[Rfam]
RNA sequence: GAGGAUAAAAAUAGGAGGGCAAAUCCGCUGAACUUAAGCAUAUAAUUAAGCGGAAGAAAAGAAAAUAACUAUGAUUCCUUUAGUAACGGCGAGUGAAGAAGGAAUAGCUCAAUAAGUAGAAUCCUUCGAAUCUUAAUGAUAUAUUUAUACAUAGAAUAAAGAAUUGAAGGAAUUGUCAAGUUGAAUUGUACUCUUGUAGGCCUCACAGGUGAAAUGAAUAUAUAGAAGUAAAGUAGGAAUACUUCCUCAUAGAGGGUGAAAGGCCCGUAUCAUAUAUCAUUUCGUGGGCUUUGGAGUAUUUAUAUUUUACUGAGUAGUGUUCUUUGAGAUUGGAGCACAAAUUGGUGUGAUACAUUUCACAUAAAGCUAAAUAUGUACAGGAGACCGAUAGCGAACAAGUACCGUGAGGGAAAGAUGAAAUAGUACUCAGGAAUGAGCAAUUAAAUAGUACCUGAAAUCGUUAAGAUGGAAC
Numbered sequence: 001g002a003g004g005a006u007a008a009a010a011a012u013a014g015g016a017g018g019g020c021a022a023a024u025c026c027g028c029u030g031a032a033c034u035u036a037a038g039c040a041u042a043u044a045a046u047u048a049a050g051c052g053g054a055a056g057a058a059a060a061g062a063a064a065a066u067a068a069c070u071a072u073g074a075u076u077c078c079u080u081u082a083g084u085a086a087c088g089g090c091g092a093g094u095g096a097a098g099a100a101g102g103a104a105u106a107g108c109u110c111a112a113u114a115a116g117u118a119g120a121a122u123c124c125u126u127c128g129a130a131u132c133u134u135a136a137u138g139a140u141a142u143a144u145u146u147a148u149a150c151a152u153a154g155a156a157u158a159a160a161g162a163a164u165u166g167a168a169g170g171a172a173u174u175g176u177c178a179a180g181u182u183g184a185a186u187u188g189u190a191c192u193c194u195u196g197u198a199g200g201c202c203u204c205a206c207a208g209g210u211g212a213a214a215u216g217a218a219u220a221u222a223u224a225g226a227a228g229u230a231a232a233g234u235a236g237g238a239a240u241a242c243u244u245c246c247u248c249a250u251a252g253a254g255g256g257u258g259a260a261a262g263g264c265c266c267g268u269a270u271c272a273u274a275u276a277u278c279a280u281u282u283c284g285u286g287g288g289c290u291u292u293g294g295a296g297u298a299u300u301u302a303u304a305u306u307u308u309a310c311u312g313a314g315u316a317g318u319g320u321u322c323u324u325u326g327a328g329a330u331u332g333g334a335g336c337a338c339a340a341a342u343u344g345g346u347g348u349g350a351u352a353c354a355u356u357u358c359a360c361a362u363a364a365a366g367c368u369a370a371a372u373a374u375g376u377a378c379a380g381g382a383g384a385c386c387g388a389u390a391g392c393g394a395a396c397a398a399g400u401a402c403c404g405u406g407a408g409g410g411a412a413a414g415a416u417g418a419a420a421u422a423g424u425a426c427u428c429a430g431g432a433a434u435g436a437g438c439a440a441u442u443a444a445a446u447a448g449u450a451c452c453u454g455a456a457a458u459c460g461u462u463a464a465g466a467u468g469g470a471a472c
Base pairs, nucleotide, nucleotide: 024055025053026052027051028050029049035042036041065072066071076103077102078101079100080099086094087093106368107367108366109365113180116177119174120173122171123170124169125168126167127166128165185303186302188299189298190297191296192295193294194293209285210284211283212282213281214280218277219276220275221274222273223272228245231244232243233242234241248252255265256264317338318337319336320335321334322333323332345362346361347360348359349358402409403408426437427436428435429434
Eukaryotic large subunit ribosomal RNA: a 472-nucleotide part of an RNA from Plasmodium falciparum. The organism belongs to Plasmodium falciparum, within Eukaryota. Clan: LSU clan. The base pairs follow the family's consensus structure, which is taken from published work.